[Rfam]
RNA sequence: GCGGGAACCCAUUCACGACGGAUCGUCCGGCACGUGCCUGCCGGUGAAGGGAUCUACCU
Numbered sequence: 001g002c003g004g005g006a007a008c009c010c011a012u013u014c015a016c017g018a019c020g021g022a023u024c025g026u027c028c029g030g031c032a033c034g035u036g037c038c039u040g041c042c043g044g045u046g047a048a049g050g051g052a053u054c055u056a057c058c059u
Base pairs, nucleotide, nucleotide: 009051010050012048013047014046015045027044028043029042030041031040032039
RNA: msiK RNA